A member of the RNA family "Bacterial antisense RNA HPnc0260" from Phocoenobacter uteri, 141 nucleotides long. The base pairs follow the family's consensus structure, which was predicted with CMfinder. The source organism's lineage runs through Bacteria, Pseudomonadati, Pseudomonadota, Pasteurellales and Phocoenobacter. The literature on the family includes a 2010 paper in Nature by Sharma et al., "The primary transcriptome of the major human pathogen Helicobacter pylori".
[Rfam]
RNA sequence: UGUGUGUAAUUUACAAAUAGCAUAAAUAAGAUAUUUAAAUAAGUAUUUUAUAGAUCAAUGAAUUGAUUUUUAGAUUAUAUGUAAGGAGAAAAUAAACAGGAAUGGUGCGACCAAGUGGACUCGAACCACCGACCCCUACCA
Numbered sequence: 001u002g003u004g005u006g007u008a009a010u011u012u013a014c015a016a017a018u019a020g021c022a023u024a025a026a027u028a029a030g031a032u033a034u035u036u037a038a039a040u041a042a043g044u045a046u047u048u049u050a051u052a053g054a055u056c057a058a059u060g061a062a063u064u065g066a067u068u069u070u071u072a073g074a075u076u077a078u079a080u081g082u083a084a085g086g087a088g089a090a091a092a093u094a095a096a097c098a099g100g101a102a103u104g105g106u107g108c109g110a111c112c113a114a115g116u117g118g119a120c121u122c123g124a125a126c127c128a129c130c131g132a133c134c135c136c137u138a139c140c141a
Stems, first nucleotide, its partner, number of pairs: 024049003032041002067079001069077001103138003107134001112131001115129004